[Rfam]
RNA sequence: GUCUAGCCCCGAUUGCAGUGGAAAUCCUUUUUUGAAAAAAAAGAUUGCAACGAAAAGCGGGAAACAGC
Numbered sequence: 001g002u003c004u005a006g007c008c009c010c011g012a013u014u015g016c017a018g019u020g021g022a023a024a025u026c027c028u029u030u031u032u033u034g035a036a037a038a039a040a041a042a043g044a045u046u047g048c049a050a051c052g053a054a055a056a057g058c059g060g061g062a063a064a065c066a067g068c
Stems, first nucleotide, its partner, number of pairs: 009060003013056002018051002023046004029041005

The record is a 68-nucleotide RNA from Chryseobacterium piperi, which matches "Flavo-1 RNA" in Rfam. Pairs were carried over by alignment from the consensus structure, which is taken from published work. Rfam classes the family as a small RNA.